A member of the RNA family "Small nucleolar RNA SNORA55" from Carassius auratus, 131 nucleotides long.
RNA sequence: GCACUACAGCAAACCAUUUCUUGCUCCAUCACAGCUAGAAAUGGGUUAAAACAGUGCAAUAGUAGCUCAUAGUGUAUCCAGACGGGUCUCCUCAUCUGUUGGAACUUGUCCCUACAAACUAUGAUACAUAU
Numbered sequence: 001g002c003a004c005u006a007c008a009g010c011a012a013a014c015c016a017u018u019u020c021u022u023g024c025u026c027c028a029u030c031a032c033a034g035c036u037a038g039a040a041a042u043g044g045g046u047u048a049a050a051a052c053a054g055u056g057c058a059a060u061a062g063u064a065g066c067u068c069a070u071a072g073u074g075u076a077u078c079c080a081g082a083c084g085g086g087u088c089u090c091c092u093c094a095u096c097u098g099u100u101g102g103a104a105c106u107u108g109u110c111c112c113u114a115c116a117a118a119c120u121a122u123g124a125u126a127c128a129u130a131u
Stems, first nucleotide, its partner, number of pairs: 001057005011047002014044004019039002067124006081110007092102003
The base pairs follow the family's consensus structure, which was predicted with PFOLD.
Rfam classes the family as an H/ACA-box small nucleolar RNA.
ACA55 is a member of the H/ACA class of snoRNA that guide the sites of modification of uridines to pseudouridines.